RNA: Bacterial RNase P class A
RNA sequence: CAGAAAAGAAAUAAUCGUGCCCGCAAUUUUUAAUGAUAAAUUUUGUGGGUGAGGAAAGUCCGGGCUCCACCGGAAAAAAUGCCUGGUAAUAACAGGGCGGAAGACGGUAGUUGCAUUUUUAUGUAUAACCCGGUUUCCGACAGAAAGUGUCACAGAAAAUAAACCGCCUUAACAAAGGUAAGGGUGCAAAGGUGAGGUAAGAGCUCACCGCAUAAAUGGCAACAUUUAUGGCAGGACAAACCUCAUUUGGAGCAAAGUCAAGCAGUGGUUUUGGUUUCCGGUCUUUAAGCCACGGGUAGACUGCUAAAGGCUUUUGGCGACAAAAGUUUCGGAUAGAUGGUUAUGCGUCCGGUAAGAUUUUUAAUUUUGCCGGACAGGACAGAACCCGGCUUAUUUUCUUUUCUGUUUU
Numbered sequence: 001c002a003g004a005a006a007a008g009a010a011a012u013a014a015u016c017g018u019g020c021c022c023g024c025a026a027u028u029u030u031u032a033a034u035g036a037u038a039a040a041u042u043u044u045g046u047g048g049g050u051g052a053g054g055a056a057a058g059u060c061c062g063g064g065c066u067c068c069a070c071c072g073g074a075a076a077a078a079a080u081g082c083c084u085g086g087u088a089a090u091a092a093c094a095g096g097g098c099g100g101a102a103g104a105c106g107g108u109a110g111u112u113g114c115a116u117u118u119u120u121a122u123g124u125a126u127a128a129c130c131c132g133g134u135u136u137c138c139g140a141c142a143g144a145a146a147g148u149g150u151c152a153c154a155g156a157a158a159a160u161a162a163a164c165c166g167c168c169u170u171a172a173c174a175a176a177g178g179u180a181a182g183g184g185u186g187c188a189a190a191g192g193u194g195a196g197g198u199a200a201g202a203g204c205u206c207a208c209c210g211c212a213u214a215a216a217u218g219g220c221a222a223c224a225u226u227u228a229u230g231g232c233a234g235g236a237c238a239a240a241c242c243u244c245a246u247u248u249g250g251a252g253c254a255a256a257g258u259c260a261a262g263c264a265g266u267g268g269u270u271u272u273g274g275u276u277u278c279c280g281g282u283c284u285u286u287a288a289g290c291c292a293c294g295g296g297u298a299g300a301c302u303g304c305u306a307a308a309g310g311c312u313u314u315u316g317g318c319g320a321c322a323a324a325a326g327u328u329u330c331g332g333a334u335a336g337a338u339g340g341u342u343a344u345g346c347g348u349c350c351g352g353u354a355a356g357a358u359u360u361u362u363a364a365u366u367u368u369g370c371c372g373g374a375c376a377g378g379a380c381a382g383a384a385c386c387c388g389g390c391u392u393a394u395u396u397u398c399u400u401u402u403c404u405g406u407u408u409u
Stems, first nucleotide, its partner, number of pairs: 001405010011394001012343005018051009056392003060389005065252004073279001075277001077248005082096004097141001098139006142243002147241002149237003164183002166179005191209006210232001211230008256302004265293006275281001309328008